[Rfam]
The family of this 46-nucleotide RNA sequence from Chelydra serpentina is "Histone 3' UTR stem-loop". Pairs were carried over by alignment from the consensus structure, which is taken from published work. About the family: The mRNAs of metazoan histone genes lack a poly-A tail. 3' end processing occurs at a site between a highly conserved stem-loop (modelled by this family) and a purine rich region around 20 nts downstream (the histone downstream element, or HDE). Rfam links the family to the GO term mRNA 3'-end processing by stem-loop binding and cleavage. A search with the family's covariance model found it, with a score of 42 bits.
RNA sequence: CUAAAGGCUCUUUUCAGAGCCACCCACAAAGUAAAAAAAGGGUUUG
Numbered sequence: 001c002u003a004a005a006g007g008c009u010c011u012u013u014u015c016a017g018a019g020c021c022a023c024c025c026a027c028a029a030a031g032u033a034a035a036a037a038a039a040g041g042g043u044u045u046g
Stems, first nucleotide, its partner, number of pairs: 006021006

NCBI's taxonomy places the organism under Eukaryota, Deuterostomia, Sarcopterygii, Durocryptodira, Chelydra.